Rfam assigns this 95-nucleotide RNA from Helicobacter hepaticus to the family "Selenocysteine transfer RNA". The match comes from Rfam's covariance-model search (61 bits). NCBI's taxonomy places the organism under Bacteria, Pseudomonadati, Campylobacterota, Campylobacterales, Helicobacter hepaticus.

[Rfam]
RNA sequence: AGGAGAGCAAACGUCUCUGGUGGGCGUCUUGGGCUUCAAACCCAUUGAAGGAUUAGGUGUCUAAUUCUUGGGGAGUUCGAUUCUCUCGCUCUCCU
Numbered sequence: 001a002g003g004a005g006a007g008c009a010a011a012c013g014u015c016u017c018u019g020g021u022g023g024g025c026g027u028c029u030u031g032g033g034c035u036u037c038a039a040a041c042c043c044a045u046u047g048a049a050g051g052a053u054u055a056g057g058u059g060u061c062u063a064a065u066u067c068u069u070g071g072g073g074a075g076u077u078c079g080a081u082u083c084u085c086u087c088g089c090u091c092u093c094c095u
Stems, first nucleotide, its partner, number of pairs: 001095008011027005017022001030044004048069007072086004